A member of the RNA family "Small nucleolar RNA SNORA65" from Salmo trutta, 128 nucleotides long. The family is grouped with related families in Rfam's "SNORA65 clan". The family's RNA type in Rfam is H/ACA-box small nucleolar RNA. The base pairs follow the family's consensus structure, which was predicted with RNAalifold. U65 belongs to the H/ACA class of snoRNAs which are thought to guide the sites of modification of uridines to pseudouridines. NCBI's taxonomy places the organism under Eukaryota, Chordata, Euteleostomi, Osteoglossocephalai, Salmo.
[Rfam]
RNA sequence: CCUGCCACUAUGCCGGUCUGUUUUAGUGACCUGGGUAUAAUCCAGUGGAGGCUCAGGUGGACCCAGUUCUAGGAAGCAGGGCUGCCUAAACAAAUGGGUAACUCGGUGCCGAAAGGCCUGGAACACAC
Numbered sequence: 001c002c003u004g005c006c007a008c009u010a011u012g013c014c015g016g017u018c019u020g021u022u023u024u025a026g027u028g029a030c031c032u033g034g035g036u037a038u039a040a041u042c043c044a045g046u047g048g049a050g051g052c053u054c055a056g057g058u059g060g061a062c063c064c065a066g067u068u069c070u071a072g073g074a075a076g077c078a079g080g081g082c083u084g085c086c087u088a089a090a091c092a093a094a095u096g097g098g099u100a101a102c103u104c105g106g107u108g109c110c111g112a113a114a115g116g117c118c119u120g121g122a123a124c125a126c127a128c
Stems, first nucleotide, its partner, number of pairs: 005048005018035001020031001021029002063121004067116002070113001072110002077106001079104003085098003